[Rfam]
RNA sequence: GUUGUGUCAUUAGAAAAUGGUACUUUCCGUGGGCCUCUCCUAGUGAACCUACUAUAGGAGCCUGCAGCCCUGAACCAUUGCCCAGCCUUCCUGCAGGUGGGCUGUGAGCACUGAAGGGGGCUGUACAGUG
Numbered sequence: 001g002u003u004g005u006g007u008c009a010u011u012a013g014a015a016a017a018u019g020g021u022a023c024u025u026u027c028c029g030u031g032g033g034c035c036u037c038u039c040c041u042a043g044u045g046a047a048c049c050u051a052c053u054a055u056a057g058g059a060g061c062c063u064g065c066a067g068c069c070c071u072g073a074a075c076c077a078u079u080g081c082c083c084a085g086c087c088u089u090c091c092u093g094c095a096g097g098u099g100g101g102c103u104g105u106g107a108g109c110a111c112u113g114a115a116g117g118g119g120g121c122u123g124u125a126c127a128g129u130g
Base pairs, nucleotide, nucleotide: 001048002047003046010043011042012041013040015038017036019034021031065123066122067121068120069119070118076113077112081108083104084103085102086101087100088099